RNA: PyrR binding site
RNA sequence: GAGACCUUUAAAAAUAGUCCCGUGAGGCUAGGAAGGUGCGGUUCUAGGGGUGUAGGCUAAGUAUACCUAUACCUAAAUCAAGCCACCAAGACUUACGGAGAAGUUUUGGUGGCUUUUUUGA
Numbered sequence: 001g002a003g004a005c006c007u008u009u010a011a012a013a014a015u016a017g018u019c020c021c022g023u024g025a026g027g028c029u030a031g032g033a034a035g036g037u038g039c040g041g042u043u044c045u046a047g048g049g050g051u052g053u054a055g056g057c058u059a060a061g062u063a064u065a066c067c068u069a070u071a072c073c074u075a076a077a078u079c080a081a082g083c084c085a086c087c088a089a090g091a092c093u094u095a096c097g098g099a100g101a102a103g104u105u106u107u108g109g110u111g112g113c114u115u116u117u118u119u120g121a
Stems, first nucleotide, its partner, number of pairs: 004037006015030005045077001048074009080115015